[Rfam]
RNA sequence: GGGUUACUCCUUGCGCUUCGCGCUUAAUUUGAUAAAGAUUCGCACCUCUAUCAAACCGGGUAACCCCACCAAAGGCAAGGCCCUACUGUCAGAUUAAAUCGAAACUACUAUACCUGAUCUUAACCCCCCCCUCUCAAUUUCGCGCACGUAUUUUUCACCCUAAGCAAUCGCAUUGGAUUUUUAAAAGUCGUUG
Dot-bracket structure: (((((((.((..((((...))))....(((((((.((........)).)))))))..)))))))))......(((...(....(...((..(((...)))...))..(.(.(..........................)).)...))....)))................((...(((((...).))))..))
Numbered sequence: 001g002g003g004u005u006a007c008u009c010c011u012u013g014c015g016c017u018u019c020g021c022g023c024u025u026a027a028u029u030u031g032a033u034a035a036a037g038a039u040u041c042g043c044a045c046c047u048c049u050a051u052c053a054a055a056c057c058g059g060g061u062a063a064c065c066c067c068a069c070c071a072a073a074g075g076c077a078a079g080g081c082c083c084u085a086c087u088g089u090c091a092g093a094u095u096a097a098a099u100c101g102a103a104a105c106u107a108c109u110a111u112a113c114c115u116g117a118u119c120u121u122a123a124c125c126c127c128c129c130c131c132u133c134u135c136a137a138u139u140u141c142g143c144g145c146a147c148g149u150a151u152u153u154u155u156c157a158c159c160c161u162a163a164g165c166a167a168u169c170g171c172a173u174u175g176g177a178u179u180u181u182u183a184a185a186a187g188u189c190g191u192u193g
Stems, first nucleotide, its partner, number of pairs: 001066007009059002013023004028055007036047002073154003079147001084146001088105002092100003108142001110140001112139001171193002176189004180184001
The family of this 193-nucleotide RNA from Nitrosospira sp. Nl5 is "Proteobacterial sRNA psRNA2". The family has 7 seed sequences and 122 matches in Rfam 15.1. NCBI's taxonomy places the organism under Bacteria, Pseudomonadati, Betaproteobacteria, Nitrosomonadaceae, Nitrosospira. A search with the family's covariance model found it, with a score of 102 bits.